[Rfam]
RNA sequence: CACCCCUGACACUGGGUAGAGAGACACCUGGUUGGUGGUGUUCUUCUCAUAUCAGUCAGGGGCAUAGCAACUGUAUAGUCCAAGUUCAUCCCAGCUUGAUGCUUUGCUUGGUAGUCAUAGCUGGUUCAUGCCCUGGGCACAUAA
Numbered sequence: 001c002a003c004c005c006c007u008g009a010c011a012c013u014g015g016g017u018a019g020a021g022a023g024a025c026a027c028c029u030g031g032u033u034g035g036u037g038g039u040g041u042u043c044u045u046c047u048c049a050u051a052u053c054a055g056u057c058a059g060g061g062g063c064a065u066a067g068c069a070a071c072u073g074u075a076u077a078g079u080c081c082a083a084g085u086u087c088a089u090c091c092c093a094g095c096u097u098g099a100u101g102c103u104u105u106g107c108u109u110g111g112u113a114g115u116c117a118u119a120g121c122u123g124g125u126u127c128a129u130g131c132c133c134u135g136g137g138c139a140c141a142u143a144a
Stems, first nucleotide, its partner, number of pairs: 003062006012055004019048003023042006084138005098132001100130001104128001106126001108124003112120001
Dot-bracket structure: ..((((((...((((...(((.((((((........))))))...)))...)))).)))))).....................(((((.........(.(...(.(.(((.(.......).))).).).).).)))))......
RNA: Small nucleolar RNA SNORA48
Organism: Monodelphis domestica